[Rfam]
RNA sequence: UUCAGGCGGGUGAUGUCAAGCAUAGUUCACAUGAGCCGGGCUGCGGCGCUUAUUAAUCUAGAAAUUAGUCUUUUGCUCCUAUCUAACGUCUGGC
Dot-bracket structure: ...(((((..............................................................................)))))...
RNA: Small nucleolar RNA snR60/Z15/Z230/Z193/J17
Organism: Physcomitrium patens